[Rfam]
RNA: Potassium channel RNA editing signal
RNA sequence: GUCGGUUAUGGUGAUAUGCACCCAGUGACCAUAGGAGGCAAGAUUGUGGGCUCUCUUUGUGCCAUCGCAGGUGUCUUGACCAUUGCAUUGCCGGUUCCUGUGAUUCUUUCCAAC
Numbered sequence: 001g002u003c004g005g006u007u008a009u010g011g012u013g014a015u016a017u018g019c020a021c022c023c024a025g026u027g028a029c030c031a032u033a034g035g036a037g038g039c040a041a042g043a044u045u046g047u048g049g050g051c052u053c054u055c056u057u058u059g060u061g062c063c064a065u066c067g068c069a070g071g072u073g074u075c076u077u078g079a080c081c082a083u084u085g086c087a088u089u090g091c092c093g094g095u096u097c098c099u100g101u102g103a104u105u106c107u108u109u110c111c112a113a114c
Base pairs, nucleotide, nucleotide: 001114002113004111005110008107010105011104014101015100016099018097020095021094037077038076040074049063050062051061